[Rfam]
RNA sequence: CAUACGCCCGGGCGAUGUCUGCAUCGGCCGUGCUGAUAAUAUUUUCUGGUCGGUGGGACUUUCGUCCGUUUGUAGA
Numbered sequence: 001c002a003u004a005c006g007c008c009c010g011g012g013c014g015a016u017g018u019c020u021g022c023a024u025c026g027g028c029c030g031u032g033c034u035g036a037u038a039a040u041a042u043u044u045u046c047u048g049g050u051c052g053g054u055g056g057g058a059c060u061u062u063c064g065u066c067c068g069u070u071u072g073u074a075g076a
Stems, first nucleotide, its partner, number of pairs: 003074004009068007017059004022055002025052005
A member of the RNA family "mir-278 microRNA precursor family", 76 nucleotides long. Pairs were carried over by alignment from the consensus structure, which was predicted with RNAalifold. Its family is annotated with RISC complex and miRNA-mediated post-transcriptional gene silencing in the Gene Ontology. The match comes from Rfam's covariance-model search (56 bits).